[Rfam]
RNA sequence: GCCAAGUCUAGGGUAGCUCCCGAAAAGGCGGAUCCUUCACCGCUCUGGCUUGGCUCCUUUCCUGAAGG
Number, nucleotide and partner (000 for none) at each position: 001g054002c053003c052004a051005a050006g049007u048008c047009u000010a000011g021012g020013g019014u000015a000016g000017c000018u000019c013020c012021c011022g000023a000024a000025a000026a000027g044028g043029c042030g041031g040032a000033u000034c068035c067036u066037u065038c064039a063040c031041c030042g029043c028044u027045c000046u000047g008048g007049c006050u005051u004052g003053g002054c001055u000056c000057c000058u000059u000060u000061c000062c000063u039064g038065a037066a036067g035068g034
RNA: int-alpA RNA
Organism: Thiobaca trueperi